RNA: glmS glucosamine-6-phosphate activated ribozyme aptamer
Organism: Desulfosporosinus cupriresistens
RNA sequence: AAUAAAGUAUAAGCGCCAGGGCCUUAAAGAUUUUGCCUAAUUAAGGUCGACGAGGAAGAGGGUUAUCGAAAGUUUCGGCGGAUCCCUCUCGGUGGCUUGUCACCGUAAAGCUUGCUUAAAACCGAAGAGUAAUUUUCGAGACAAAGAGUAAGCUGACAAGACAA
Numbered sequence: 001a002a003u004a005a006a007g008u009a010u011a012a013g014c015g016c017c018a019g020g021g022c023c024u025u026a027a028a029g030a031u032u033u034u035g036c037c038u039a040a041u042u043a044a045g046g047u048c049g050a051c052g053a054g055g056a057a058g059a060g061g062g063u064u065a066u067c068g069a070a071a072g073u074u075u076c077g078g079c080g081g082a083u084c085c086c087u088c089u090c091g092g093u094g095g096c097u098u099g100u101c102a103c104c105g106u107a108a109a110g111c112u113u114g115c116u117u118a119a120a121a122c123c124g125a126a127g128a129g130u131a132a133u134u135u136u137c138g139a140g141a142c143a144a145a146g147a148g149u150a151a152g153c154u155g156a157c158a159a160g161a162c163a164a
Base pairs, nucleotide, nucleotide: 020048021047022046023045024044025043026042027041057089058088059087060086061085066078067077068076069075090105091104092103093102094101109154110153111152112151113150114149115148123138124137125136126135127134128133